[Rfam]
RNA sequence: GGUCAUGAGCGCCAGCGCAAAGCCCCGGCUCGCUGGCCGGCAACCCUCCAACCGCGGUGGGGUGCUCCGGGUGACGACCAGGCCGUGCGUCGACCGUCGCGCGGCAAGCGCGGACU
Numbered sequence: 001g002g003u004c005a006u007g008a009g010c011g012c013c014a015g016c017g018c019a020a021a022g023c024c025c026c027g028g029c030u031c032g033c034u035g036g037c038c039g040g041c042a043a044c045c046c047u048c049c050a051a052c053c054g055c056g057g058u059g060g061g062g063u064g065c066u067c068c069g070g071g072u073g074a075c076g077a078c079c080a081g082g083c084c085g086u087g088c089g090u091c092g093a094c095c096g097u098c099g100c101g102c103g104g105c106a107a108g109c110g111c112g113g114a115c116u
Stems, first nucleotide, its partner, number of pairs: 001079004009038001011037006021030002039066003044062003048057002082105008091096001

This 116-nucleotide sequence from Janibacter alkaliphilus belongs to the Rfam family "SAM (S-adenosyl methionine) riboswitch aptamer".
Pairs were carried over by alignment from the consensus structure, which is taken from published work.
Rfam links the family to the GO terms regulation of gene expression and S-adenosylmethionine metabolic process.
Taxonomically the source falls in Janibacter (Bacteria, Bacillati, Micrococcales, Intrasporangiaceae).
Clan: SAM clan.